A member of the RNA family "chrB-a RNA" from Sagittula salina, 86 nucleotides long. By type it is a cis-regulatory element.

[Rfam]
Nucleotides: 086
Stems, first nucleotide, its partner, number of pairs: 005025006046081006
Number, partner (000 for none) and nucleotide at each position: 001000g002000g003000u004000a005025u006024g007023g008022g009021g010020a011000u012000c013000c014000g015000c016000g017000a018000u019000c020010u021009c022008c023007c024006c025005a026000c027000g028000a029000g030000g031000c032000g033000a034000c035000a036000g037000c038000c039000g040000a041000a042000g043000c044000u045000c046081g047080c048079g049078u050077u051076c052000c053000a054000c055000a056000u057000c058000a059000a060000c061000c062000c063000g064000a065000a066000u067000u068000u069000u070000u071000c072000g073000g074000a075000g076051g077050a078049a079048c080047g081046c082000a083000c084000a085000u086000g